A member of the RNA family "Nitrogen stress-induced RNA 1" from Myxacorys almedinensis, 51 nucleotides long. A reference for the family is Ionescu et al. (2010), "Heterocyst-specific transcription of NsiR1, a non-coding RNA encoded in a tandem array of direct repeats in cyanobacteria", J Mol Biol. Lineage of the source: Bacteria > Bacillati > Cyanobacteriota > Leptolyngbyales > Myxacorys almedinensis. The family's RNA type in Rfam is small RNA.

RNA sequence: UGGUAGAUGCACCCUGAUUAUUAACCCUGGCUUCGGCUAGGGUUUUACUUU
Numbered sequence: 001u002g003g004u005a006g007a008u009g010c011a012c013c014c015u016g017a018u019u020a021u022u023a024a025c026c027c028u029g030g031c032u033u034c035g036g037c038u039a040g041g042g043u044u045u046u047a048c049u050u051u
Stems, first nucleotide, its partner, number of pairs: 002013003024043008